This 88-nucleotide RNA sequence from Bucco capensis belongs to the Rfam family "Small nucleolar RNA SNORD70".
On this family, see Huttenhofer et al., EMBO J 2001: "RNomics: an experimental approach that identifies 201 candidates for novel, small, non-messenger RNAs in mouse".
Gene Ontology terms of the family: RNA processing and nucleolus.
By type it is a C/D-box small nucleolar RNA.
A search with the family's covariance model found it, with a score of 64 bits.
The pairing is the family consensus, mapped onto this sequence.
NCBI's taxonomy places the organism under Eukaryota, Deuterostomia, Craniata, Theropoda, Bucco.

[Rfam]
RNA sequence: UUGCCUGUCAUCAAUGAUGGAUCUUGUUGAAGCUGAAUGUAACUCAUUUGAGUCAACAUUUCGUCACUGCCACUGAGAAAACAGACAG
Numbered sequence: 001u002u003g004c005c006u007g008u009c010a011u012c013a014a015u016g017a018u019g020g021a022u023c024u025u026g027u028u029g030a031a032g033c034u035g036a037a038u039g040u041a042a043c044u045c046a047u048u049u050g051a052g053u054c055a056a057c058a059u060u061u062c063g064u065c066a067c068u069g070c071c072a073c074u075g076a077g078a079a080a081a082c083a084g085a086c087a088g
Base pairs, nucleotide, nucleotide: 001088002087003086005084006083007082008081011078012077